[Rfam]
Nucleotides: 077
Base pairs, nucleotide, nucleotide: 010025011024012023013022016068017067018066020064021063048058049057050056
Number, partner (000 for none) and nucleotide at each position: 001000a002000c003000u004000c005000g006000c007000a008000g009000c010025g011024g012023c013022g014000a015000u016068g017067g018066a019000u020064c021063c022013c023012g024011c025010c026000c027000g028000g029000g030000u031000g032000u033000a034000c035000g036000a037000g038000c039000a040000c041000c042000c043000u044000a045000a046000c047000c048058g049057c050056c051000u052000g053000u054000c055000g056050g057049g058048c059000u060000g061000a062000u063021g064020g065000u066018u067017c068016c069000u070000g071000c072000c073000c074000c075000a076000c077000a
Fluoride riboswitch aptamer (crcB RNA motif): a 77-nucleotide RNA sequence from Rhodococcus sp. SMB37. NCBI's taxonomy places the organism under Bacteria, Bacillati, Actinomycetes, Mycobacteriales, Rhodococcus. For this family Rfam cites "Widespread genetic switches and toxicity resistance proteins for fluoride" (Baker et al., Science, 2012).